MIR9563 microRNA precursor family: a 122-nucleotide sequence from Brassica oleracea. A search with the family's covariance model found it, with a score of 95 bits.

[Rfam]
Nucleotides: 122
Stems, first nucleotide, its partner, number of pairs: 004122002008118032041085007
Number, partner (000 for none) and nucleotide at each position: 001000g002000g003000a004122a005121g006000u007000u008118a009117a010116g011115a012114a013113a014112c015111u016110g017109u018108u019107u020106c021105u022104u023103a024102a025101u026100u027099u028098u029097u030096a031095a032094c033093u034092a035091a036090a037089a038088a039087a040000g041085c042084u043083a044082a045081g046080a047079a048000c049000u050000g051000a052000u053000u054000c055000u056000u057000a058000a059000a060000g061000u062000c063000c064000u065000u066000a067000u068000u069000u070000a071000a072000g073000a074000a075000c076000c077000u078000g079047u080046u081045c082044u083043u084042a085041g086000a087039u088038u089037u090036u091035u092034u093033a094032g095031u096030u097029a098028a099027a100026a101025g102024u103023u104022a105021a106020g107019a108018a109017a110016c111015a112014g113013u114012u115011u116010c117009u118008u119000u120000u121005c122004u

Rfam links the family to the GO terms miRNA-mediated post-transcriptional gene silencing and RISC complex. Pairs were carried over by alignment from the consensus structure, which was predicted with RNAalifold.